[Rfam]
RNA: nrdJ RNA
Organism: Streptomyces aurantiacus
RNA sequence: ACCUGUCGUGGGUCGUCCGUAGGGGCGCCCGCGACAUCAAGACACACACCGUGCUGCGGGAAGAACGCGGCACUUCAGGGCGUU
Numbered sequence: 001a002c003c004u005g006u007c008g009u010g011g012g013u014c015g016u017c018c019g020u021a022g023g024g025g026c027g028c029c030c031g032c033g034a035c036a037u038c039a040a041g042a043c044a045c046a047c048a049c050c051g052u053g054c055u056g057c058g059g060g061a062a063g064a065a066c067g068c069g070g071c072a073c074u075u076c077a078g079g080g081c082g083u084u
Base pairs, nucleotide, nucleotide: 004036005035006034007033008032009031010030011029012028014027015026016025017024018023051073052072053071054070055069056068057067058066